[Rfam]
RNA sequence: UCUCGGGGGCGGGGCGGCGCCAUGUUUCGAACCUGGUCAGGUCCGGGAGGAAGCAGCCAUAAGAGACCGCUGGCGAGCGCCCCGUCCCUGCGAGCA
Numbered sequence: 001u002c003u004c005g006g007g008g009g010c011g012g013g014g015c016g017g018c019g020c021c022a023u024g025u026u027u028c029g030a031a032c033c034u035g036g037u038c039a040g041g042u043c044c045g046g047g048a049g050g051a052a053g054c055a056g057c058c059a060u061a062a063g064a065g066a067c068c069g070c071u072g073g074c075g076a077g078c079g080c081c082c083c084g085u086c087c088c089u090g091c092g093a094g095c096a
Stems, first nucleotide, its partner, number of pairs: 004090011015077001018075005024067005034059004042051003
RNA: Bacterial small signal recognition particle RNA